[Rfam]
Background: Shown here is a 101-nucleotide RNA, a member of the family "SAM-I/IV (S-adenosyl methionine) riboswitch aptamer". Rfam's curators put it in the seed alignment. The family has 417 seed sequences and 567 matches in Rfam 15.1.

RNA sequence: AGACAACAUUAAGAGAGGGCUGACGCCCCGCCAACCUGCAGCUGUGCAAGGUGGUACCCCGAAAGGGAAUGUGGCCUAAAGGCAACGACAGCGUCAGCCUC
Numbered sequence: 001a002g003a004c005a006a007c008a009u010u011a012a013g014a015g016a017g018g019g020c021u022g023a024c025g026c027c028c029c030g031c032c033a034a035c036c037u038g039c040a041g042c043u044g045u046g047c048a049a050g051g052u053g054g055u056a057c058c059c060c061g062a063a064a065g066g067g068a069a070u071g072u073g074g075c076c077u078a079a080a081g082g083c084a085a086c087g088a089c090a091g092c093g094u095c096a097g098c099c100u101c
Base pairs, nucleotide, nucleotide: 006072007071008070009069010068015029017028018027019026020025030055031054032053035051036050037049038047039046040045044094074083075082076081